A member of the RNA family "Clostridiales-2 RNA" from Cellulosilyticum lentocellum, 88 nucleotides long. The source organism's lineage runs through Bacteria, Bacillati, Lachnospirales, Cellulosilyticum and Cellulosilyticum lentocellum. The sequence is in the family's curated seed alignment. Rfam 15.1 lists 285 matches to the family in 26 species.
Nucleotides: 088
Stems, first nucleotide, its partner, number of pairs: 015035008056076007
Number, partner (000 for none) and nucleotide at each position: 001000g002000u003000g004000c005000u006000a007000u008000g009000g010000g011000g012000a013000g014000c015035a016034c017033a018032g019031a020030g021029g022028g023000g024000a025000a026000u027000c028022c029021c030020c031019u032018c033017u034016g035015u036000c037000g038000u039000a040000u041000u042000a043000a044000g045000g046000a047000g048000a049000g050000u051000g052000c053000u054000c055000a056076g057075c058074u059073g060072a061071c062070a063000c064000g065000c066000u067000c068000u069000u070062u071061g072060u073059c074058a075057g076056c077000g078000c079000c080000g081000a082000a083000g084000g085000g086000a087000a088000c